[Rfam]
Annotation
Shown here is an 82-nucleotide RNA from Medicago truncatula, a member of the family "MIR5298 microRNA precursor family". NCBI's taxonomy places the organism under Eukaryota, Mesangiospermae, rosids, Fabaceae, Medicago. The base pairs follow the family's consensus structure, which was predicted with RNAalifold. Its family is annotated with miRNA-mediated post-transcriptional gene silencing and RISC complex in the Gene Ontology.
RNA sequence: UUAGAUUUUCUUCUGAAAUUUUCCUCGGAUUUUUGUUGUUAAAGAUUGAUGGAGAUGAUACGAAGAUGAAGAAGAGGAGAAG
Number, nucleotide and partner (000 for none) at each position: 001u000002u000003a000004g000005a000006u075007u074008u073009u072010c071011u070012u069013c068014u000015g000016a000017a000018a067019u066020u065021u064022u063023c062024c000025u000026c000027g000028g047029a046030u045031u044032u043033u042034u041035g000036u000037u000038g000039u000040u000041a034042a033043a032044g031045a030046u029047u028048g000049a000050u000051g000052g000053a000054g000055a000056u000057g000058a000059u000060a000061c000062g023063a022064a021065g020066a019067u018068g013069a012070a011071g010072a009073a008074g007075a006076g000077g000078a000079g000080a000081a000082g000